This 333-nucleotide part of an RNA from Bacteroides finegoldii belongs to the Rfam family "Bacterial large subunit ribosomal RNA". The family's consensus secondary structure is taken from published work. The match comes from Rfam's covariance-model search (2767 bits).

[Rfam]
RNA sequence: UGAGUGAUUCACGGUUAAGGAACUAGGCAAAUUGACCCUGUAACUUCGGGAUAAAGGGUCCCAACGAGAGUUGGGCGCAGAGAAUAGGUCCAGGCAACUGUUUAACAAAAACACAGGGCUGUGCCAAAUUGAAAGAUUACGUAUACAGCCUGACACCUGCCCGGUGCUGGAAGGUUAAGAGGAGAUGUCAUCGCAAGAGAAGCAUUGAAUUGAAGCCCCAGUAAACGGCGGCCGUAACUAUAACGGUCCUAAGGUAGCGAAAUUCCUUGUCGGGUAAGUUCCGACCUGCACGAAUGGUGUAAUGAUCUGGACACUGUCUCAACCGUGAGCUCA
Numbered sequence: 001u002g003a004g005u006g007a008u009u010c011a012c013g014g015u016u017a018a019g020g021a022a023c024u025a026g027g028c029a030a031a032u033u034g035a036c037c038c039u040g041u042a043a044c045u046u047c048g049g050g051a052u053a054a055a056g057g058g059u060c061c062c063a064a065c066g067a068g069a070g071u072u073g074g075g076c077g078c079a080g081a082g083a084a085u086a087g088g089u090c091c092a093g094g095c096a097a098c099u100g101u102u103u104a105a106c107a108a109a110a111a112c113a114c115a116g117g118g119c120u121g122u123g124c125c126a127a128a129u130u131g132a133a134a135g136a137u138u139a140c141g142u143a144u145a146c147a148g149c150c151u152g153a154c155a156c157c158u159g160c161c162c163g164g165u166g167c168u169g170g171a172a173g174g175u176u177a178a179g180a181g182g183a184g185a186u187g188u189c190a191u192c193g194c195a196a197g198a199g200a201a202g203c204a205u206u207g208a209a210u211u212g213a214a215g216c217c218c219c220a221g222u223a224a225a226c227g228g229c230g231g232c233c234g235u236a237a238c239u240a241u242a243a244c245g246g247u248c249c250u251a252a253g254g255u256a257g258c259g260a261a262a263u264u265c266c267u268u269g270u271c272g273g274g275u276a277a278g279u280u281c282c283g284a285c286c287u288g289c290a291c292g293a294a295u296g297g298u299g300u301a302a303u304g305a306u307c308u309g310g311a312c313a314c315u316g317u318c319u320c321a322a323c324c325g326u327g328a329g330c331u332c333a
Stems, first nucleotide, its partner, number of pairs: 001333004009328008018319003035059005044049001060075006076080001088312007095304002099113003116151008124141001127138004154299004159229003164226002166222005173217003179211002184206005191198002230248006249253001259286001269285006